Shown here is a 78-nucleotide RNA from Lamprotornis superbus, a member of the family "mir-144 microRNA precursor family". On this family, see Xu et al., FEBS Lett 2006: "Identification of microRNAs from different tissues of chicken embryo and adult chicken". Gene Ontology terms of the family: RISC complex and miRNA-mediated post-transcriptional gene silencing. The base pairs follow the family's consensus structure, which was predicted with RNAalifold. The organism belongs to Lamprotornis, within Eukaryota. Rfam 15.1 lists 594 matches to the family in 569 species. A search with the family's covariance model found it, with a score of 90 bits.
Nucleotides: 078
Base pairs, nucleotide, nucleotide: 007070008069010067011066013064014063015062016061017060018059019058020057022056023055024054025053026052027051028050029049030048032045033044034043
Number, partner (000 for none) and nucleotide at each position: 001000g002000u003000u004000c005000c006000g007070g008069g009000c010067a011066g012000g013064a014063u015062a016061u017060c018059a019058u020057c021000g022056u023055a024054u025053a026052c027051u028050g029049u030048a031000a032045g033044u034043u035000g036000g037000c038000u039000a040000u041000g042000a043034g044033a045032c046000a047000c048030u049029a050028c051027a052026g053025u054024a055023u056022a057020g058019a059018u060017g061016a062015u063014g064013u065000a066011c067010u068000c069008c070007c071000c072000g073000g074000g075000c076000u077000g078000c